[Rfam]
RNA: Small nucleolar RNA SNORA43
Nucleotides: 126
Stems, first nucleotide, its partner, number of pairs: 004052002007049004024041004064118003072109002077104002082099004087094001
Number, partner (000 for none) and nucleotide at each position: 001000c002000a003000g004052g005051u006000g007049c008048c009047a010046g011000a012000c013000c014000g015000g016000c017000c018000a019000g020000c021000a022000c023000c024041a025040c026039a027038g028000a029000c030000a031000c032000a033000g034000c035000a036000g037000c038027c039026u040025g041024u042000g043000a044000c045000a046010u047009u048008g049007g050000g051005a052004c053000a054000a055000a056000g057000a058000g059000g060000a061000a062000g063000c064118g065117g066116c067000u068000g069000u070000u071000u072109c073108u074000a075000u076000a077104c078103u079000c080000a081000g082099u083098g084097c085096u086000c087094c088000g089000a090000a091000c092000a093000g094087g095000a096085a097084g098083c099082a100000c101000u102000g103078a104077g105000c106000a107000c108073g109072g110000u111000u112000u113000g114000c115000a116066g117065c118064c119000a120000a121000a122000c123000g124000u125000g126000c